[Rfam]
RNA sequence: CAGCCCAUUGGUAGCUGAAAAGCCAGGGGCGGUAGCGUG
Numbered sequence: 001c002a003g004c005c006c007a008u009u010g011g012u013a014g015c016u017g018a019a020a021a022g023c024c025a026g027g028g029g030c031g032g033u034a035g036c037g038u039g
Stems, first nucleotide, its partner, number of pairs: 008026005
Source information: Shown here is a 39-nucleotide RNA sequence from Candidatus Symbiopectobacterium sp. PLON1, a member of the family "JUMPstart RNA". The source organism's lineage runs through Bacteria, Gammaproteobacteria, Enterobacterales, Enterobacteriaceae and Symbiopectobacterium. A search with the family's covariance model found it, with a score of 51 bits. The base pairs follow the family's consensus structure, which is taken from published work. By type it is a cis-regulatory element.